[Rfam]
Overview:
This 170-nucleotide sequence from Streptomyces sp. Z26 belongs to the Rfam family "c-di-AMP riboswitch aptamer (ydaO/yuaA leader)". The source organism's lineage runs through Bacteria, Actinomycetota, Kitasatosporales, Streptomycetaceae and Streptomyces. The match comes from Rfam's covariance-model search (57 bits).

RNA sequence: GACGCGUCAGCGCCGUAGGCAGGAGCGGGGGAACCAGGUAGGCCGCCGCACCUCUCCAGGGUGCGGCUAGGGGCGAAACCGUACGAGUCCGCAACCGCGGUCCCGUACGGCCGGGCACUCAUCCGGUCCGAGCCCGACAGCUCACCUCGUAGGCGUCGGUGAGGAAGUCA
Numbered sequence: 001g002a003c004g005c006g007u008c009a010g011c012g013c014c015g016u017a018g019g020c021a022g023g024a025g026c027g028g029g030g031g032a033a034c035c036a037g038g039u040a041g042g043c044c045g046c047c048g049c050a051c052c053u054c055u056c057c058a059g060g061g062u063g064c065g066g067c068u069a070g071g072g073g074c075g076a077a078a079c080c081g082u083a084c085g086a087g088u089c090c091g092c093a094a095c096c097g098c099g100g101u102c103c104c105g106u107a108c109g110g111c112c113g114g115g116c117a118c119u120c121a122u123c124c125g126g127u128c129c130g131a132g133c134c135c136g137a138c139a140g141c142u143c144a145c146c147u148c149g150u151a152g153g154c155g156u157c158g159g160u161g162a163g164g165a166a167g168u169c170a
Base pairs, nucleotide, nucleotide: 005155006154007153008152013023014022025150026149027148028147029146030145035070071135072134073133079110080109081108082107083106084105085104113129114128115127116126